[Rfam]
RNA sequence: AAAAAUGUUUUCUAGGGUUCCGCAGCUUCAAGACUGGACUGGUCCGAGAGAAAACGCACAGCCGCUUGGUUGUGACACGGAGGGAUAAAAGCCUGGGAGAU
Numbered sequence: 001a002a003a004a005a006u007g008u009u010u011u012c013u014a015g016g017g018u019u020c021c022g023c024a025g026c027u028u029c030a031a032g033a034c035u036g037g038a039c040u041g042g043u044c045c046g047a048g049a050g051a052a053a054a055c056g057c058a059c060a061g062c063c064g065c066u067u068g069g070u071u072g073u074g075a076c077a078c079g080g081a082g083g084g085a086u087a088a089a090a091g092c093c094u095g096g097g098a099g100a101u
Base pairs, nucleotide, nucleotide: 007055008054009053010052011051012050015045016044020042021041022039023036024035025034027032057074058073059072060071061070062069063068076096078099082094083093084092
This 101-nucleotide RNA sequence from Paenibacillus rigui belongs to the Rfam family "Guanidine-I riboswitch aptamer". Rfam's curators write: This family represents a conserved RNA structure found upstream of the ykkC and yxkD genes in Bacillus subtilis and related genes in other bacteria. The function of this family is unclear although it has been suggested that it may function to switch on efflux pumps and detoxification systems in response to harmful environmental molecules. The family has 100 seed sequences and 1,509 matches in Rfam 15.1. NCBI's taxonomy places the organism under Bacteria, Bacillati, Bacilli, Paenibacillaceae, Paenibacillus. A search with the family's covariance model found it, with a score of 85 bits. The base pairs follow the family's consensus structure.